[Rfam]
RNA sequence: AUACUUACCUGGAUGGGGUCUAUGGUUGAUCUCGAAGGAUCAUGGCCUAGGUUUGUGACUUCCAUUGCACUUUGGAAGGGCGCUCGCCUAAGAUCUGUCCUCACGUCAUAAUUUGUUCUUGAGGGGCGUGCGCCUACGCCGCCCUG
Numbered sequence: 001a002u003a004c005u006u007a008c009c010u011g012g013a014u015g016g017g018g019u020c021u022a023u024g025g026u027u028g029a030u031c032u033c034g035a036a037g038g039a040u041c042a043u044g045g046c047c048u049a050g051g052u053u054u055g056u057g058a059c060u061u062c063c064a065u066u067g068c069a070c071u072u073u074g075g076a077a078g079g080g081c082g083c084u085c086g087c088c089u090a091a092g093a094u095c096u097g098u099c100c101u102c103a104c105g106u107c108a109u110a111a112u113u114u115g116u117u118c119u120u121g122a123g124g125g126g127c128g129u130g131c132g133c134c135u136a137c138g139c140c141g142c143c144c145u146g
Stems, first nucleotide, its partner, number of pairs: 012107004016048005023042005049089003053086001055083003059079003062075002092102002123145005130139003

This 146-nucleotide RNA from Papaver nudicaule belongs to the Rfam family "U1 spliceosomal RNA". U1 is a small nuclear RNA (snRNA) component of the spliceosome (involved in pre-mRNA splicing). Its 5' end forms complementary base pairs with the 5' splice junction, thus defining the 5' donor site of an intron. There are significant differences in sequence and secondary structure between metazoan and yeast U1 snRNAs, the latter being much longer (568 nucleotides as compared to 164 nucleotides in human). Lineage of the source: Eukaryota > Streptophyta > Euphyllophyta > Ranunculales > Papaver. A search with the family's covariance model found it, with a score of 94 bits. The family's consensus secondary structure is taken from published work. The family's RNA type in Rfam is spliceosomal small nuclear RNA. A reference for the family is Zwieb (1997), "The uRNA database", Nucleic Acids Res.